[Rfam]
RNA sequence: ACGCGGUGAUGAAUACAUUCUGUGGCGAAGACGAGGCUCUUUGGAGUUAGUCGGUGACGCUAACACAACCCUCUAAGAAGUUCUGAGCGU
Numbered sequence: 001a002c003g004c005g006g007u008g009a010u011g012a013a014u015a016c017a018u019u020c021u022g023u024g025g026c027g028a029a030g031a032c033g034a035g036g037c038u039c040u041u042u043g044g045a046g047u048u049a050g051u052c053g054g055u056g057a058c059g060c061u062a063a064c065a066c067a068a069c070c071c072u073c074u075a076a077g078a079a080g081u082u083c084u085g086a087g088c089g090u
Stems, first nucleotide, its partner, number of pairs: 001090004
Small nucleolar RNA U61: a 90-nucleotide RNA sequence from Protea cynaroides. Lineage of the source: Eukaryota > Viridiplantae > Embryophyta > Euphyllophyta > Protea. Rfam links the family to the GO terms RNA processing and nucleolus. A reference for the family is Brown et al. (2003), "Plant snoRNA database", Nucleic Acids Res.